[Rfam]
RNA: c-di-AMP riboswitch aptamer (ydaO/yuaA leader)
Organism: Thermincola carboxydiphila
Nucleotides: 129
Base pairs, nucleotide, nucleotide: 011113012112013111014110018028019027020026029108030107031106032105033104034103039049050093051092052091058067059066060065070087071086072085073084
Number, partner (000 for none) and nucleotide at each position: 001000c002000u003000g004000c005000u006000u007000a008000a009000u010000g011113c012112g013111c014110u015000g016000a017000a018028u019027c020026c021000g022000a023000u024000a025000a026020g027019g028018a029108a030107c031106g032105g033104g034103g035000g036000a037000c038000c039049c040000a041000u042000u043000u044000a045000c046000a047000c048000a049039g050093g051092g052091g053000u054000g055000a056000a057000u058067c059066u060065c061000u062000a063000u064000u065060g066059a067058g068000u069000a070087g071086g072085g073084u074000u075000a076000c077000u078000c079000u080000u081000u082000c083000g084073a085072c086071c087070c088000g089000a090000a091052c092051c093050c094000g095000g096000c097000a098000g099000c100000u101000a102000a103034c104033c105032u106031c107030g108029u109000a110014a111013g112012c113011g114000u115000u116000g117000a118000a119000a120000g121000g122000g123000a124000g125000g126000c127000g128000u129000g